[Rfam]
RNA sequence: GCUAAGAUGUAGCCUUUAUCUGCAUUUGCACCUGCACCUUCUUGUUUUUAAUUAUCUGCUUCUGCUUCAGAAACCAAAUGUGUUUGUUUGUGAUGUUGAUGAAAAUAGAAGAGGACCAAAACAAAAAAUAAUAAUAAGGUGCAGGUGCAGGUGCAGGUGCAGCUGAAUGCCAUUUUGGC
Numbered sequence: 001g002c003u004a005a006g007a008u009g010u011a012g013c014c015u016u017u018a019u020c021u022g023c024a025u026u027u028g029c030a031c032c033u034g035c036a037c038c039u040u041c042u043u044g045u046u047u048u049u050a051a052u053u054a055u056c057u058g059c060u061u062c063u064g065c066u067u068c069a070g071a072a073a074c075c076a077a078a079u080g081u082g083u084u085u086g087u088u089u090g091u092g093a094u095g096u097u098g099a100u101g102a103a104a105a106u107a108g109a110a111g112a113g114g115a116c117c118a119a120a121a122c123a124a125a126a127a128a129u130a131a132u133a134a135u136a137a138g139g140u141g142c143a144g145g146u147g148c149a150g151g152u153g154c155a156g157g158u159g160c161a162g163c164u165g166a167a168u169g170c171c172a173u174u175u176u177g178g179c
Base pairs, nucleotide, nucleotide: 001179002178003177004176005175006174007173008172009171012170013169015167016166017165018164020162021161022160023159024158025157026156027155028154029153030152031151032150033149034148035147036146037145038144039143054079055078057076058075060072061071062070063069064068
The record is a 179-nucleotide sequence from Gossypium stocksii, which matches "MIR530 microRNA precursor family" in Rfam. The base pairs follow the family's consensus structure, which was predicted with WAR. Taxonomically the source falls in Gossypium (Eukaryota, rosids, malvids, Malvales).